[Rfam]
RNA sequence: UGGCACCCAAUGUGGGGCUGGAUACUGGGGGAUAAUGUAAGAGUCCAACGACAAAGAUAAGAAGAAGGGGUGUGCACCCGCUCAAACAGAAGUUCAGAGACGUCACGGUAGCCUGCUGUGACCGAGCCGACAGGUAAGUUGGUAGUUCAAUCAUAGGGCAAGAAUUGAGUCAACAUCAGAAAUAUGUAAUACAGUUAAAAGAAGCUUUACAGGCAAGAGGAGUAAAGGUUACAACUGAGGAUUUAUUUCAUUUCUUUGAUUUUGUAAAAGACAUCUGCCCAU
Numbered sequence: 001u002g003g004c005a006c007c008c009a010a011u012g013u014g015g016g017g018c019u020g021g022a023u024a025c026u027g028g029g030g031g032a033u034a035a036u037g038u039a040a041g042a043g044u045c046c047a048a049c050g051a052c053a054a055a056g057a058u059a060a061g062a063a064g065a066a067g068g069g070g071u072g073u074g075c076a077c078c079c080g081c082u083c084a085a086a087c088a089g090a091a092g093u094u095c096a097g098a099g100a101c102g103u104c105a106c107g108g109u110a111g112c113c114u115g116c117u118g119u120g121a122c123c124g125a126g127c128c129g130a131c132a133g134g135u136a137a138g139u140u141g142g143u144a145g146u147u148c149a150a151u152c153a154u155a156g157g158g159c160a161a162g163a164a165u166u167g168a169g170u171c172a173a174c175a176u177c178a179g180a181a182a183u184a185u186g187u188a189a190u191a192c193a194g195u196u197a198a199a200a201g202a203a204g205c206u207u208u209a210c211a212g213g214c215a216a217g218a219g220g221a222g223u224a225a226a227g228g229u230u231a232c233a234a235c236u237g238a239g240g241a242u243u244u245a246u247u248u249c250a251u252u253u254c255u256u257u258g259a260u261u262u263u264g265u266a267a268a269a270g271a272c273a274u275c276u277g278c279c280c281a282u
Base pairs, nucleotide, nucleotide: 006030007029008028012025013024014023036053037052038051093132094130095129101124102123104120105119106118107117108116140161142159143158146157147156149154166209167208168207169205170204217257218256219255220254221253222252226244227243228242229241230240267282270279272277
Overview: The record is a 282-nucleotide RNA sequence from Nannospalax galili, which matches "Mason-Pfizer monkey virus packaging signal" in Rfam. Its family is annotated with viral genome packaging in the Gene Ontology. A reference for the family is Mustafa et al. (2004), "Mutational analysis of the predicted secondary RNA structure of the Mason-Pfizer monkey virus packaging signal", Virus Res. It is annotated as a cis-regulatory element. A search with the family's covariance model found it, with a score of 143 bits. NCBI's taxonomy places the organism under Eukaryota, Metazoa, Mammalia, Theria, Nannospalax.